Shown here is a 90-nucleotide RNA, a member of the family "Plastid-rps12 3UTR RNA". It is annotated as a cis-regulatory element. About the family: Plastid rpl20 is a non-coding RNA (ncRNA) recognised in plastids. The literature on the family includes a 2023 paper in Plant Commun by Richter et al., "Retrograde signaling in plants: A critical review focusing on the GUN pathway and beyond". The sequence is in the family's curated seed alignment.
[Rfam]
RNA sequence: GGUUUUCAUUGGUGCAAAUCCAAUUAUUUAAAAUGAGAAGCAAUUCUCCAUUGGUAGCAAAUAGUUAUCCAUUAAGCGGAGAAAAUUUUA
Numbered sequence: 001g002g003u004u005u006u007c008a009u010u011g012g013u014g015c016a017a018a019u020c021c022a023a024u025u026a027u028u029u030a031a032a033a034u035g036a037g038a039a040g041c042a043a044u045u046c047u048c049c050a051u052u053g054g055u056a057g058c059a060a061a062u063a064g065u066u067a068u069c070c071a072u073u074a075a076g077c078g079g080a081g082a083a084a085a086u087u088u089u090a
Stems, first nucleotide, its partner, number of pairs: 009023004046081004050072002053069006